[Rfam]
RNA sequence: CCAUCCGCGCGUGACUGGCGAUGAAGGUGGGCGACCACCGGGGAGCGCGCGGGCGAUAGACGCCGCUCGCCUGGGCCCCCUUC
Numbered sequence: 001c002c003a004u005c006c007g008c009g010c011g012u013g014a015c016u017g018g019c020g021a022u023g024a025a026g027g028u029g030g031g032c033g034a035c036c037a038c039c040g041g042g043g044a045g046c047g048c049g050c051g052g053g054c055g056a057u058a059g060a061c062g063c064c065g066c067u068c069g070c071c072u073g074g075g076c077c078c079c080c081u082u083c
Base pairs, nucleotide, nucleotide: 004053005052006051007050008049009048010047011046012045015042016041017071018070019069020068021067027038028037029036030035062076063075064074
RNA: ZMP/ZTP riboswitch aptamer (pfl RNA motif)
Organism: Phenylobacterium zucineum